[Rfam]
RNA sequence: GUUGGAUAUGGCGACAUGACACCUCAUACAUCAUUUGGUAGACUUGUUGGAUCACUGUGUGCUGUGAUGGGCGUCUUGACCAUUGCACUCCCAGUUCCAGUAAUUAAUCAUUAAA
Number, nucleotide and partner (000 for none) at each position: 001g000002u114003u000004g112005g111006a000007u000008a108009u107010g105011g104012c000013g000014a101015c100016a000017u000018g097019a096020c000021a095022c094023c000024u000025c000026a000027u000028a000029c000030a000031u000032c000033a000034u000035u000036u000037g077038g076039u000040a074041g000042a000043c000044u000045u000046g000047u000048u000049g063050g062051a000052u000053c000054a000055c000056u000057g000058u000059g000060u000061g000062c050063u049064g000065u000066g000067a000068u000069g000070g000071g000072c000073g000074u040075c000076u038077u037078g000079a000080c000081c000082a000083u000084u000085g000086c000087a000088c000089u000090c000091c000092c000093a000094g022095u021096u019097c018098c000099a000100g015101u014102a000103a000104u011105u010106a000107a009108u008109c000110a000111u005112u004113a000114a002115a000
RNA: Potassium channel RNA editing signal